Record summary:
Shown here is an 84-nucleotide RNA from Eubacteriaceae bacterium CHKCI004, a member of the family "skipping-rope RNA". Rfam classes the family as a small RNA. Taxonomically the source falls in Eubacteriaceae (Bacteria, Bacillati, Bacillota, Eubacteriales).
RNA sequence: GUUAUUCGAGGUGGUAAAUUUCGUUGCAAUCAUGCACCCUUUGGGUUAAAAGAGAUGCAGGAGAGGCGACGCCUGCCGAAUAAC
Numbered sequence: 001g002u003u004a005u006u007c008g009a010g011g012u013g014g015u016a017a018a019u020u021u022c023g024u025u026g027c028a029a030u031c032a033u034g035c036a037c038c039c040u041u042u043g044g045g046u047u048a049a050a051a052g053a054g055a056u057g058c059a060g061g062a063g064a065g066g067c068g069a070c071g072c073c074u075g076c077c078g079a080a081u082a083a084c
Base pairs, nucleotide, nucleotide: 001084002083003082004081005080006079007078008077011033012032013031014030015029025069035052036046037045038044039043057076058075059074060073061072